[Rfam]
Nucleotides: 084
Stems, first nucleotide, its partner, number of pairs: 001084013015070011027058008036049005
Number, partner (000 for none) and nucleotide at each position: 001084u002083a003082u004081u005080a006079g007078g008077u009076u010075g011074g012073u013072g014000g015070a016069a017068a018067g019066g020065g021064a022063a023062u024061u025060g026000c027058g028057g029056u030055u031054u032053u033052u034051g035000c036049c037048a038047u039046u040045a041000a042000a043000a044000g045040u046039a047038a048037u049036g050000u051034c052033a053032a054031a055030a056029a057028c058027c059000a060025c061024a062023a063022u064021u065020c066019c067018c068017u069016u070015u071000g072013c073012a074011c075010c076009a077008a078007c079006c080005u081004a082003a083002u084001a

The family of this 84-nucleotide RNA from Pongo abelii is "mir-548 microRNA precursor family". Pairs were carried over by alignment from the consensus structure, which was predicted with WAR. A reference for the family is Witten et al. (2010), "Ultra-high throughput sequencing-based small RNA discovery and discrete statistical biomarker analysis in a collection of cervical tumours and matched controls", BMC Biol. The organism belongs to Pongo, within Eukaryota. Rfam links the family to the GO terms RISC complex and miRNA-mediated post-transcriptional gene silencing.